[Rfam]
RNA sequence: UGAGGGUGAAAGACAUGGGUAGUGAGACGCUUUGUUCUGGCCGUAUCACUAUUCUGUUUUUCGCCCUUUG
Numbered sequence: 001u002g003a004g005g006g007u008g009a010a011a012g013a014c015a016u017g018g019g020u021a022g023u024g025a026g027a028c029g030c031u032u033u034g035u036u037c038u039g040g041c042c043g044u045a046u047c048a049c050u051a052u053u054c055u056g057u058u059u060u061u062c063g064c065c066c067u068u069u070g
Base pairs, nucleotide, nucleotide: 008062009061010060011059012058013057014056015055017054018053019052021050022049023048024047025046027044028043029042
The record is a 70-nucleotide RNA from Haemonchus contortus, which matches "mir-71 microRNA precursor family" in Rfam. It is one of the family's seed sequences. For this family Rfam cites "The silkworm (Bombyx mori) microRNAs and their expressions in multiple developmental stages" (Yu et al., PLoS One, 2008). Taxonomically the source falls in Haemonchus (Eukaryota, Bilateria, Protostomia, Ecdysozoa). Gene Ontology terms of the family: miRNA-mediated post-transcriptional gene silencing and RISC complex.